Rfam assigns this 135-nucleotide RNA sequence from Castor canadensis to the family "Small nucleolar RNA SNORA55".
The family's consensus secondary structure was predicted with PFOLD.
Rfam 15.1 lists 1,476 matches to the family in 616 species.
The source organism's lineage runs through Eukaryota, Bilateria, Chordata, Euarchontoglires and Castor.
RNA sequence: GCACCUGAUUCUUUCCCAUUCCUGCUGCUUCAUGCUGGUCUUGGGGACAGAAGGUGCUAUACUCUGAGCAGAGAACUUCCAGAUGGGUUGUUUUCCAUUUGUCUUGGGCCCUGUCUCUACAACAGUGCCACAUUA
Numbered sequence: 001g002c003a004c005c006u007g008a009u010u011c012u013u014u015c016c017c018a019u020u021c022c023u024g025c026u027g028c029u030u031c032a033u034g035c036u037g038g039u040c041u042u043g044g045g046g047a048c049a050g051a052a053g054g055u056g057c058u059a060u061a062c063u064c065u066g067a068g069c070a071g072a073g074a075a076c077u078u079c080c081a082g083a084u085g086g087g088u089u090g091u092u093u094u095c096c097a098u099u100u101g102u103c104u105u106g107g108g109c110c111c112u113g114u115c116u117c118u119a120c121a122a123c124a125g126u127g128c129c130a131c132a133u134u135a
Stems, first nucleotide, its partner, number of pairs: 001057005013047006021038002068128003073123001081116007095107003